[Rfam]
The record is a 128-nucleotide RNA from Oricola thermophila, which matches "Alphaproteobacterial ar14" in Rfam.
For this family Rfam cites "A conserved alpha-proteobacterial small RNA contributes to osmoadaptation and symbiotic efficiency of rhizobia on legume roots" (Robledo et al., Environ Microbiol, 2017).
By type it is a small RNA.
RNA sequence: CGGUUUCCGUACGGGUCCAUCCUCCUCCCGGAUCCGCCGGAAAAUGGAACGGAGCCUAUCCUCCUCCCAGGCUUCUUUCCGGACAAUGAGACGCCCGCUGCUUCCUCCUCCCGCAGCGGGCGUUUUCA
Numbered sequence: 001c002g003g004u005u006u007c008c009g010u011a012c013g014g015g016u017c018c019a020u021c022c023u024c025c026u027c028c029c030g031g032a033u034c035c036g037c038c039g040g041a042a043a044a045u046g047g048a049a050c051g052g053a054g055c056c057u058a059u060c061c062u063c064c065u066c067c068c069a070g071g072c073u074u075c076u077u078u079c080c081g082g083a084c085a086a087u088g089a090g091a092c093g094c095c096c097g098c099u100g101c102u103u104c105c106u107c108c109u110c111c112c113g114c115a116g117c118g119g120g121c122g123u124u125u126u127c128a
Base pairs, nucleotide, nucleotide: 007040008039009038012036013035014034015033016032017031047079048078049077051075052074053073054072055071056070091123092122093121094120095119096118097117098116099115100114101113